Shown here is a 168-nucleotide RNA sequence, a member of the family "Clostridiales-1 RNA". The family's RNA type in Rfam is small RNA.

RNA sequence: UGAUACCAGGGUCAAAAGGUCUAAACCCACAUGAGCUCGCUCAUAUGUGGGUGAAAGACCUUGGGACCCGCCCCAAUAUGAGCAUAAAAGUGUGAUGAUAAUCCCAUGAUAUGCGAAUAUUGGGUAGGAUUGUGGGAGUGCGUAGCACGGAACAAUCCGUAGGUAUCA
Number, nucleotide and partner (000 for none) at each position: 001u168002g167003a166004u165005a164006c163007c162008a000009g000010g000011g067012u066013c065014a000015a000016a000017a061018g060019g059020u058021c057022u056023a000024a000025a052026c051027c050028c049029a048030c047031a044032u043033g042034a041035g040036c000037u000038c000039g000040c035041u034042c033043a032044u031045a000046u000047g030048u029049g028050g027051g026052u025053g000054a000055a000056a022057g021058a020059c019060c018061u017062u000063g000064g000065g013066a012067c011068c000069c000070g000071c000072c124073c123074c122075a121076a120077u119078a118079u117080g000081a000082g114083c113084a112085u111086a000087a000088a000089a107090g000091u106092g105093u000094g103095a102096u000097g000098a000099u000100a000101a000102u095103c094104c000105c092106a091107u089108g000109a000110u000111a085112u084113g083114c082115g000116a000117a079118u078119a077120u076121u075122g074123g073124g072125u000126a000127g158128g157129a156130u155131u154132g153133u152134g000135g000136g000137a000138g148139u147140g146141c145142g000143u000144a000145g141146c140147a139148c138149g000150g000151a000152a133153c132154a131155a130156u129157c128158c127159g000160u000161a000162g007163g006164u005165a004166u003167c002168a001